[Rfam]
RNA: SAM (S-adenosyl methionine) riboswitch aptamer
Organism: Rarobacter incanus
RNA sequence: GGUCAUGAGUGCCAGCACCGCGCAAUCCCCGGAUUGCCGCGAACCGAGCCCCGGCUUGCUGGCCGACAACCCUCCAUCGCGGCGGGGUGCCCCGGGUGACGACCUGGCCGUUGCCGACUCGCGCAACGGCAAGCGCGCAUG
Dot-bracket structure: ((((....(.((((((.....(................................)..)))))))(.(..(((.((.....))..))).).).........))))..((((((((........))))))))...........